[Rfam]
RNA sequence: UUACAGAUAAGUAAAUUGAUUCGUAUAGAUUCGAGAAUAAGGCUCGAAAGUUUCUACCAGAUGGCCGUAAACCAUUUGACUACGAAUCUUGAUUAGGGGAGU
Numbered sequence: 001u002u003a004c005a006g007a008u009a010a011g012u013a014a015a016u017u018g019a020u021u022c023g024u025a026u027a028g029a030u031u032c033g034a035g036a037a038u039a040a041g042g043c044u045c046g047a048a049a050g051u052u053u054c055u056a057c058c059a060g061a062u063g064g065c066c067g068u069a070a071a072c073c074a075u076u077u078g079a080c081u082a083c084g085a086a087u088c089u090u091g092a093u094u095a096g097g098g099g100a101g102u
Stems, first nucleotide, its partner, number of pairs: 018088008030048006058078007
A member of the RNA family "Purine riboswitch aptamer" from Selenihalanaerobacter shriftii, 102 nucleotides long. About the family: Riboswitches are metabolite binding domains within certain messenger RNAs that serve as precision sensors for their corresponding targets. The source organism's lineage runs through Bacteria, Bacillati, Clostridia, Halanaerobiales and Selenihalanaerobacter.